[Rfam]
RNA sequence: GUGGCACUCAAAUGUGGAAGCACUCUUCGAUCAAAUCUGUGAAAAGUGCUACAAUAUUUGGGUGCUAC
Number, nucleotide and partner (000 for none) at each position: 001g000002u000003g000004g065005c064006a063007c062008u061009c060010a059011a058012a057013u000014g055015u054016g000017g052018a000019a050020g049021c048022a047023c046024u045025c000026u043027u042028c041029g000030a000031u000032c000033a000034a000035a000036u000037c000038u000039g000040u000041g028042a027043a026044a000045a024046g023047u022048g021049c020050u019051a000052c017053a000054a015055u014056a000057u012058u011059u010060g009061g008062g007063u006064g005065c004066u000067a000068c000

About this RNA
Rfam assigns this 68-nucleotide RNA from Callorhinus ursinus to the family "mir-290 microRNA precursor family". Its Rfam clan is "mir-290 clan". Pairs were carried over by alignment from the consensus structure, which was predicted with RNAalifold. It scores 56 bits against the family's covariance model. Taxonomically the source falls in Callorhinus (Eukaryota, Chordata, Teleostomi, Laurasiatheria). Rfam links the family to the GO terms RISC complex and miRNA-mediated post-transcriptional gene silencing.